Shown here is a 373-nucleotide part of an RNA from Culex quinquefasciatus, a member of the family "Eukaryotic large subunit ribosomal RNA". Rfam links the family to the GO terms structural constituent of ribosome and ribosome. The sequence is in the family's curated seed alignment.
RNA sequence: CCCGUUGAACUCGAUUAUCCGCGGCGGAGAUAUUCACCUGCGGUUGGCCCUCACCCGGUCCGCCGCAGGGCACUUACCUCCUGCCUCACGAGGACGUUGCGAUCCAUUACGAAACGGUUAGCCAGCGAUGGCUACAGGCCCGGCACCUGCCCCUUGGCAUCUGGUUGCUUGUCCCACAGUAGCGGCGCUCAGUUCGGAAGGCCUGCGCCGCAACCUGGGGCUUACCGGUGCGUGGUGUGCAGCCGGGCGCGUGAUGGAUUCCCGCGUACACCGUCUCGGGAGAGGCUCGCCUCUCCCACCUCCACCAAGGUGACGGACUGUCGAUCGGCAACGAUAAAAUCGAGGUACCUUCGGGACCCGUCUUGAAACACGG
Dot-bracket structure: ((((..(.((((........(.((((.......................................................)))).).....(.(((((.....................................................................................................................................................................................................................................))))).)......)).))..)..))))..((((........))))